[Rfam]
RNA sequence: UUUUGUGAAAGGCAAACUUAUUGAAAAAUAAGGACGCAAAGUUACAGGUCUAAGGCCAUGAUGCUAGGACGGCUGUGCUACCGCU
Numbered sequence: 001u002u003u004u005g006u007g008a009a010a011g012g013c014a015a016a017c018u019u020a021u022u023g024a025a026a027a028a029u030a031a032g033g034a035c036g037c038a039a040a041g042u043u044a045c046a047g048g049u050c051u052a053a054g055g056c057c058a059u060g061a062u063g064c065u066a067g068g069a070c071g072g073c074u075g076u077g078c079u080a081c082c083g084c085u
Stems, first nucleotide, its partner, number of pairs: 012037002017032006040079003045075003048070003055064002